[Rfam]
RNA sequence: GAGUGUGCGCCUCCCGGAGUCGAUUUGUAGCAGCAGGCUUCAAACCGCCCGGUGCUACUGCGUUAUAAGGGUAUGGUGGUGAUCGCCCGCGGAAAGGUCACCCAUCAGGGUGGCAAGU
Numbered sequence: 001g002a003g004u005g006u007g008c009g010c011c012u013c014c015c016g017g018a019g020u021c022g023a024u025u026u027g028u029a030g031c032a033g034c035a036g037g038c039u040u041c042a043a044a045c046c047g048c049c050c051g052g053u054g055c056u057a058c059u060g061c062g063u064u065a066u067a068a069g070g071g072u073a074u075g076g077u078g079g080u081g082a083u084c085g086c087c088c089g090c091g092g093a094a095a096g097g098u099c100a101c102c103c104a105u106c107a108g109g110g111u112g113g114c115a116a117g118u
Base pairs, nucleotide, nucleotide: 001015003013005011016041017040018039019038020037021036024033025032046117048092049091050089051088052087054080055079057077058076059075062072063071064070097114098113099112100111101110102109
Notes
The family of this 118-nucleotide sequence from Paraburkholderia phymatum is "Group II catalytic intron D1-D4-2". The pairing is the family consensus, mapped onto this sequence. A reference for the family is Bonen and Vogel (2001), "The ins and outs of group II introns", Trends Genet.